This 48-nucleotide RNA sequence belongs to the Rfam family "uup RNA". The base pairs follow the family's consensus structure, which is taken from published work. It is one of the family's seed sequences.
RNA sequence: GGAAAAGCUGCUCUGCACAACUGCAUGCGAUGAGACAUUGUGCGGGGC
Numbered sequence: 001g002g003a004a005a006a007g008c009u010g011c012u013c014u015g016c017a018c019a020a021c022u023g024c025a026u027g028c029g030a031u032g033a034g035a036c037a038u039u040g041u042g043c044g045g046g047g048c
Stems, first nucleotide, its partner, number of pairs: 011047005017041003